[Rfam]
RNA sequence: AAGCCAGCCAAUAAGUCUGCUUACCUGAAUGUGUUAGGAAAUUUAGAGAAAGCUGGCAAUAGUAAAGCCAUGUUAUGAGCCUUAAAGACAUCGAAGACAUUAAGGCCCCUGAAAAUAGCCAUAAGA
Number, nucleotide and partner (000 for none) at each position: 001a000002a000003g057004c056005c055006a054007g053008c000009c000010a000011a000012u000013a000014a000015g000016u039017c038018u000019g000020c037021u000022u000023a000024c000025c000026u000027g000028a000029a000030u000031g000032u000033g000034u000035u000036a000037g020038g017039a016040a000041a000042u000043u000044u000045a000046g000047a000048g000049a000050a000051a000052g000053c007054u006055g005056g004057c003058a000059a000060u000061a000062g000063u000064a000065a000066a000067g119068c118069c000070a116071u000072g000073u000074u000075a000076u000077g000078a000079g106080c105081c104082u103083u102084a101085a100086a000087g098088a000089c096090a000091u000092c000093g000094a000095a000096g089097a000098c087099a000100u085101u084102a083103a082104g081105g080106c079107c000108c000109c000110u000111g000112a000113a000114a000115a000116u070117a000118g068119c067120c000121a000122u000123a000124a000125g000126a000
Background:
This 126-nucleotide sequence from Pipistrellus kuhlii belongs to the Rfam family "Small nucleolar RNA SNORA33". Rfam describes the family as follows. ACA33 is a member of the H/ACA class of snoRNA that guide the sites of modification of uridines to pseudouridines. Rfam 15.1 lists 1,176 matches to the family in 522 species. Rfam classes the family as an H/ACA-box small nucleolar RNA. Rfam links the family to the GO terms RNA processing and nucleolus. The base pairs follow the family's consensus structure, which was predicted with PFOLD.